Record summary
This 135-nucleotide RNA from Chrysochloris asiatica belongs to the Rfam family "U11 spliceosomal RNA". The base pairs follow the family's consensus structure, which is taken from published work. Rfam classes the family as a spliceosomal small nuclear RNA. NCBI's taxonomy places the organism under Eukaryota, Bilateria, Theria, Chrysochlorinae, Chrysochloris.
RNA sequence: AAAAAGGGCUUCUGUCGUGAGUGGCACACACGUAAGACAUCUCUAAUGCUCUACGUGCAGAACUGAAACAAAGAGAUUUCAGAAAUGUAAUUUUUGCUAUCAGGGCAGCUGGUGAUCGUUGGUCCCAGUGCCCUA
Numbered sequence: 001a002a003a004a005a006g007g008g009c010u011u012c013u014g015u016c017g018u019g020a021g022u023g024g025c026a027c028a029c030a031c032g033u034a035a036g037a038c039a040u041c042u043c044u045a046a047u048g049c050u051c052u053a054c055g056u057g058c059a060g061a062a063c064u065g066a067a068a069c070a071a072a073g074a075g076a077u078u079u080c081a082g083a084a085a086u087g088u089a090a091u092u093u094u095u096g097c098u099a100u101c102a103g104g105g106c107a108g109c110u111g112g113u114g115a116u117c118g119u120u121g122g123u124c125c126c127a128g129u130g131c132c133c134u135a
Stems, first nucleotide, its partner, number of pairs: 008086001010084003013026005029057006036050001038048003060079003064075001103133004108129005114124004